This 162-nucleotide RNA from Coprococcus eutactus belongs to the Rfam family "Clostridiales-1 RNA".
The family has 194 seed sequences and 1,172 matches in Rfam 15.1.
The organism belongs to Coprococcus, within Bacteria.
The family's consensus secondary structure is taken from published work.
Rfam classes the family as a small RNA.
[Rfam]
RNA sequence: UAAUACACCGCCAAGCGAUGCCGGAUUUUCGAGCUCGCUCGAAAAAAUCCGGCAUCAUUUGGCGGUUAAGCGGUAUAUGAAACAUGGAGGCUGACAGGCCGGAGUGUGAAUGAAGCGCGGCAGAUUGCGGGAGCACGAAGUGCGGAGCAAGCUGAAGUAUUA
Numbered sequence: 001u002a003a004u005a006c007a008c009c010g011c012c013a014a015g016c017g018a019u020g021c022c023g024g025a026u027u028u029u030c031g032a033g034c035u036c037g038c039u040c041g042a043a044a045a046a047a048u049c050c051g052g053c054a055u056c057a058u059u060u061g062g063c064g065g066u067u068a069a070g071c072g073g074u075a076u077a078u079g080a081a082a083c084a085u086g087g088a089g090g091c092u093g094a095c096a097g098g099c100c101g102g103a104g105u106g107u108g109a110a111u112g113a114a115g116c117g118c119g120g121c122a123g124a125u126u127g128c129g130g131g132a133g134c135a136c137g138a139a140g141u142g143c144g145g146a147g148c149a150a151g152c153u154g155a156a157g158u159a160u161u162a
Stems, first nucleotide, its partner, number of pairs: 001162006008065004014059002017056013030041004071117002074114001076112003082107004089100004122153002125150004133143004
Dot-bracket structure: ((((((.((((..((.(((((((((((((((((....))))..))))))))))))).))..)))).....((.(.(((...((((...((((....))))...))))..))).).))....((.((((....((((...))))...)))).))...))))))